[Rfam]
RNA sequence: UCCUGACUCUCUAAAUAGAGUAAGUUAGGGCUACACGCCAGUUUAUUAGCACUUUAUUUAAAUUUAUUUUAAGUCGUGAAAUACAGAAAUUUCUUACGAGGAAUUUCCGUGAAAAGAAUUUGCUCUCUUAAUUGAUAAAUUGGCUAUAAGCA
Dot-bracket structure: ((((((((((((....))))..))))))))......((((((((((....(.(((.(((..........................(((((..((....))..)))))...))).))).)...............))))))))))........
Numbered sequence: 001u002c003c004u005g006a007c008u009c010u011c012u013a014a015a016u017a018g019a020g021u022a023a024g025u026u027a028g029g030g031c032u033a034c035a036c037g038c039c040a041g042u043u044u045a046u047u048a049g050c051a052c053u054u055u056a057u058u059u060a061a062a063u064u065u066a067u068u069u070u071a072a073g074u075c076g077u078g079a080a081a082u083a084c085a086g087a088a089a090u091u092u093c094u095u096a097c098g099a100g101g102a103a104u105u106u107c108c109g110u111g112a113a114a115a116g117a118a119u120u121u122g123c124u125c126u127c128u129u130a131a132u133u134g135a136u137a138a139a140u141u142g143g144c145u146a147u148a149a150g151c152a
Stems, first nucleotide, its partner, number of pairs: 001030008009020004037144010051119001053117003057113003086107005093100002
This 152-nucleotide sequence belongs to the Rfam family "RT-16 RNA". Rfam classes the family as a small RNA.